[Rfam]
RNA sequence: AAAUAGCCCUGAUAGCAGUGGAAAUCCUUUUUCUCUCGUUUCAGACGAGAGAAAAAGAUUGAAACGGAUAGCAGGAAAAAGC
Numbered sequence: 001a002a003a004u005a006g007c008c009c010u011g012a013u014a015g016c017a018g019u020g021g022a023a024a025u026c027c028u029u030u031u032u033c034u035c036u037c038g039u040u041u042c043a044g045a046c047g048a049g050a051g052a053a054a055a056a057g058a059u060u061g062a063a064a065c066g067g068a069u070a071g072c073a074g075g076a077a078a079a080a081g082c
Stems, first nucleotide, its partner, number of pairs: 009074003013070002018065002023060004029055011
Flavo-1 RNA: an 82-nucleotide RNA from Flavobacterium humi. Taxonomically the source falls in Flavobacterium (Bacteria, Bacteroidota, Flavobacteriia, Flavobacteriaceae). By type it is a small RNA. Rfam 15.1 lists 7,497 matches to the family in 411 species. The match comes from Rfam's covariance-model search (81 bits).